Background
Shown here is an 85-nucleotide sequence from Pleuronectes platessa, a member of the family "mir-142 microRNA precursor family". For this family Rfam cites "Small RNA expression and strain specificity in the rat" (Linsen et al., BMC Genomics, 2010). Gene Ontology terms of the family: miRNA-mediated post-transcriptional gene silencing and RISC complex.
RNA sequence: CAGUAUACUCAUCCAUAAAGUAGGAAACACUACACUGUGUAGAGAAGUUUAGUAGUGCUUUCUACUUUAUGGGUGACAACACUGU
Numbered sequence: 001c002a003g004u005a006u007a008c009u010c011a012u013c014c015a016u017a018a019a020g021u022a023g024g025a026a027a028c029a030c031u032a033c034a035c036u037g038u039g040u041a042g043a044g045a046a047g048u049u050u051a052g053u054a055g056u057g058c059u060u061u062c063u064a065c066u067u068u069a070u071g072g073g074u075g076a077c078a079a080c081a082c083u084g085u
Stems, first nucleotide, its partner, number of pairs: 014071010026059001028057006